Overview:
Shown here is an 80-nucleotide sequence from Pseudoxanthobacter soli, a member of the family "Makes More Granules Regulator RNA (mmgR)". Its Rfam clan is "suhB sRNA clan". Rfam classes the family as a small RNA. The match comes from Rfam's covariance-model search (61 bits). Lineage of the source: Bacteria > Pseudomonadota > Hyphomicrobiales > Segnochrobactraceae > Pseudoxanthobacter soli.
RNA sequence: UUUUGCAGCCCUCUUUGGGCGUUUCCUCCCUAGACUUGGGCCGCUGACGCUUCCGCGCGCGGCCCUUUUUCUUUUGCACG
Numbered sequence: 001u002u003u004u005g006c007a008g009c010c011c012u013c014u015u016u017g018g019g020c021g022u023u024u025c026c027u028c029c030c031u032a033g034a035c036u037u038g039g040g041c042c043g044c045u046g047a048c049g050c051u052u053c054c055g056c057g058c059g060c061g062g063c064c065c066u067u068u069u070u071c072u073u074u075u076g077c078a079c080g
Stems, first nucleotide, its partner, number of pairs: 008020004038065007